[Rfam]
RNA sequence: GGGCCGGUAGCUCAGCCUGGGAGAGCGUCGGCUUUGCAAGCCGAAGGCCCCGGGUUCGAAUCCCGGCCGGUCCA
Numbered sequence: 001g002g003g004c005c006g007g008u009a010g011c012u013c014a015g016c017c018u019g020g021g022a023g024a025g026c027g028u029c030g031g032c033u034u035u036g037c038a039a040g041c042c043g044a045a046g047g048c049c050c051c052g053g054g055u056u057c058g059a060a061u062c063c064c065g066g067c068c069g070g071u072c073c074a
Stems, first nucleotide, its partner, number of pairs: 001073007010026004028044005050066005
RNA: tRNA
Organism: Thermococcus sp. MZ11